[Rfam]
Rfam assigns this 57-nucleotide RNA to the family "Cyanobacterial functional RNA 1". A reference for the family is Voss et al. (2007), "A motif-based search in bacterial genomes identifies the ortholog of the small RNA Yfr1 in all lineages of cyanobacteria", BMC Genomics.
RNA sequence: GUGCGAGCCUUGGCUCACACACUCCUCACACCCCCUGGCCCGACGCGUUCGGGCUUU
Numbered sequence: 001g002u003g004c005g006a007g008c009c010u011u012g013g014c015u016c017a018c019a020c021a022c023u024c025c026u027c028a029c030a031c032c033c034c035c036u037g038g039c040c041c042g043a044c045g046c047g048u049u050c051g052g053g054c055u056u057u
Stems, first nucleotide, its partner, number of pairs: 001020003005016004037055007